[Rfam]
RNA sequence: CGAAUCCUGAUGUGUACGUUAGUUACACAUUCUGUUUUGACCGAACACUAUAUGUUUGGGAGUCUGAGUUUUUGGACUGCGCACAUGCCCUUUGCGGGGACUUGCAACGCCCGAAACAGGGCACCCACCUGCUGUAGAGCGGGUUCAAAACAUAUGUUUUACAACGACGGCACGAUUGGGAUUCGC
Numbered sequence: 001c002g003a004a005u006c007c008u009g010a011u012g013u014g015u016a017c018g019u020u021a022g023u024u025a026c027a028c029a030u031u032c033u034g035u036u037u038u039g040a041c042c043g044a045a046c047a048c049u050a051u052a053u054g055u056u057u058g059g060g061a062g063u064c065u066g067a068g069u070u071u072u073u074g075g076a077c078u079g080c081g082c083a084c085a086u087g088c089c090c091u092u093u094g095c096g097g098g099g100a101c102u103u104g105c106a107a108c109g110c111c112c113g114a115a116a117c118a119g120g121g122c123a124c125c126c127a128c129c130u131g132c133u134g135u136a137g138a139g140c141g142g143g144u145u146c147a148a149a150a151c152a153u154a155u156g157u158u159u160u161a162c163a164a165c166g167a168c169g170g171c172a173c174g175a176u177u178g179g180g181a182u183u184c185g186c
Stems, first nucleotide, its partner, number of pairs: 002184010012173004017169003033152004038147003041143002058126003062122004069116001071115005077109001083103001088099004
RNA: 6S / SsrS RNA